RNA sequence: GAUUUAUAAAGAAGAAGGGAGAGAAUAGGCUCUAUGAACUUCUGGCAACCUACCGACUCGUAAAGGCAAGGUGCUAAUUCCUACCUGUUUUGGUUAUUAGUUAUUAGUU
Numbered sequence: 001g002a003u004u005u006a007u008a009a010a011g012a013a014g015a016a017g018g019g020a021g022a023g024a025a026u027a028g029g030c031u032c033u034a035u036g037a038a039c040u041u042c043u044g045g046c047a048a049c050c051u052a053c054c055g056a057c058u059c060g061u062a063a064a065g066g067c068a069a070g071g072u073g074c075u076a077a078u079u080c081c082u083a084c085c086u087g088u089u090u091u092g093g094u095u096a097u098u099a100g101u102u103a104u105u106a107g108u109u
Stems, first nucleotide, its partner, number of pairs: 001109004006104003013043005021032003026083004044075004049071002051068001053066002087097002

Background: The record is a 109-nucleotide RNA from Arcicella aurantiaca, which matches "SAM riboswitch aptamer (S box leader)" in Rfam. A search with the family's covariance model found it, with a score of 55 bits. From the family's description: The SAM riboswitch is found upstream of a number of genes which code for proteins involved in methionine or cysteine biosynthesis in Gram-positive bacteria.